Rfam assigns this 32-nucleotide RNA sequence to the family "L31-Firmicutes ribosomal protein leader".

[Rfam]
RNA sequence: CUAUGACUUAUAGGAAGUCAUGGCGGAAGGAG
Numbered sequence: 001c002u003a004u005g006a007c008u009u010a011u012a013g014g015a016a017g018u019c020a021u022g023g024c025g026g027a028a029g030g031a032g
Base pairs, nucleotide, nucleotide: 001023002022003021004020005019006018007017008016
Dot-bracket structure: ((((((((.......)))))))).........
The family's RNA type in Rfam is cis-regulatory leader. A reference for the family is Eckert and Weinberg (2020), "Discovery of 20 novel ribosomal leader candidates in bacteria and archaea", BMC Microbiol. Pairs were carried over by alignment from the consensus structure, which is taken from published work.